RNA: c-di-GMP-I-GGC riboswitch aptamer
Organism: Defluviitalea raffinosedens
RNA sequence: UGCGAUAAAGGCAAACUUAGUGAAAGCUAAGGGCGCAAAGCUAUGGGCCUUCCAGAUUUUGCUGAUGGCUGCCAGGUUACCGAAC
Numbered sequence: 001u002g003c004g005a006u007a008a009a010g011g012c013a014a015a016c017u018u019a020g021u022g023a024a025a026g027c028u029a030a031g032g033g034c035g036c037a038a039a040g041c042u043a044u045g046g047g048c049c050u051u052c053c054a055g056a057u058u059u060u061g062c063u064g065a066u067g068g069c070u071g072c073c074a075g076g077u078u079a080c081c082g083a084a085c
Stems, first nucleotide, its partner, number of pairs: 003082002011036002016031006034071001039078004044074003047069003